[Rfam]
The family of this 108-nucleotide RNA sequence from Aotus nancymaae is "Y RNA". From the family's description: Y RNAs are components of the Ro ribonucleoprotein particle (Ro RNP), in association with Ro60 and La proteins. The family's RNA type in Rfam is non-coding RNA gene. A search with the family's covariance model found it, with a score of 58 bits. A reference for the family is Dhahbi et al. (2013), "5'-YRNA fragments derived by processing of transcripts from specific YRNA genes and pseudogenes are abundant in human serum and plasma", Physiol Genomics. The source organism's lineage runs through Eukaryota, Chordata, Sarcopterygii, Tetrapoda and Aotus.
RNA sequence: GGCUUGUCCAAGGGUAGGGAGUUUUCUCAGUUGAUUGUUCACAGUCAAAGAUAAAACUCCUUGUUCUACUCUUUCUCCUUUCCCACUACUGCACUUGACUAGUCUUUA
Numbered sequence: 001g002g003c004u005u006g007u008c009c010a011a012g013g014g015u016a017g018g019g020a021g022u023u024u025u026c027u028c029a030g031u032u033g034a035u036u037g038u039u040c041a042c043a044g045u046c047a048a049a050g051a052u053a054a055a056a057c058u059c060c061u062u063g064u065u066c067u068a069c070u071c072u073u074u075c076u077c078c079u080u081u082c083c084c085a086c087u088a089c090u091g092c093a094c095u096u097g098a099c100u101a102g103u104c105u106u107u108a
Stems, first nucleotide, its partner, number of pairs: 001104004006099003010096002014092002016087002019084001021082001029070003033066002